[Rfam]
RNA sequence: GGUUUCCAUUGGUGUAAAUCCGAUUUAAGAUGAGAAAAAAUUUCCCAUUGGUAGCGAACGUUAUCCAUUAAGCGGGGAAUCCUAU
Numbered sequence: 001g002g003u004u005u006c007c008a009u010u011g012g013u014g015u016a017a018a019u020c021c022g023a024u025u026u027a028a029g030a031u032g033a034g035a036a037a038a039a040a041u042u043u044c045c046c047a048u049u050g051g052u053a054g055c056g057a058a059c060g061u062u063a064u065c066c067a068u069u070a071a072g073c074g075g076g077g078a079a080u081c082c083u084a085u
Stems, first nucleotide, its partner, number of pairs: 009023004043077004047068002050065006
Plastid-rps12 3UTR RNA: an 85-nucleotide sequence from Carnegiea gigantea. Plastid rpl20 is a non-coding RNA (ncRNA) recognised in plastids. It was found in the three prime untranslated region (3UTR) of rps12 gene, its 3UTR location sugest a role in transcript maduration. NCBI's taxonomy places the organism under Eukaryota, Streptophytina, Tracheophyta, Cactoideae, Carnegiea.